[Rfam]
RNA sequence: GGUCAACACAAGGAGGCAGACAUGGGACUGACCAAUUCUCUCAAUGUCCUGAUCGUCGGUGCGGCGUUUGUGUUCAUAGCGACGAUGCUGUUCAUCUGAGUUUUCAUGGGUGAACCAACGGCCAUCUUAAAGAGAUCCCGAGAGGUCCGGCCAAGCCAGUGAUGCUUUCCAAAUUCAAUAAGAAAGGCGCAUGAACCGUUACCGGCAUGCGCCUU
Numbered sequence: 001g002g003u004c005a006a007c008a009c010a011a012g013g014a015g016g017c018a019g020a021c022a023u024g025g026g027a028c029u030g031a032c033c034a035a036u037u038c039u040c041u042c043a044a045u046g047u048c049c050u051g052a053u054c055g056u057c058g059g060u061g062c063g064g065c066g067u068u069u070g071u072g073u074u075c076a077u078a079g080c081g082a083c084g085a086u087g088c089u090g091u092u093c094a095u096c097u098g099a100g101u102u103u104u105c106a107u108g109g110g111u112g113a114a115c116c117a118a119c120g121g122c123c124a125u126c127u128u129a130a131a132g133a134g135a136u137c138c139c140g141a142g143a144g145g146u147c148c149g150g151c152c153a154a155g156c157c158a159g160u161g162a163u164g165c166u167u168u169c170c171a172a173a174u175u176c177a178a179u180a181a182g183a184a185a186g187g188c189g190c191a192u193g194a195a196c197c198g199u200u201a202c203c204g205g206c207a208u209g210c211g212c213c214u215u
Stems, first nucleotide, its partner, number of pairs: 015048004024040004184215010196205003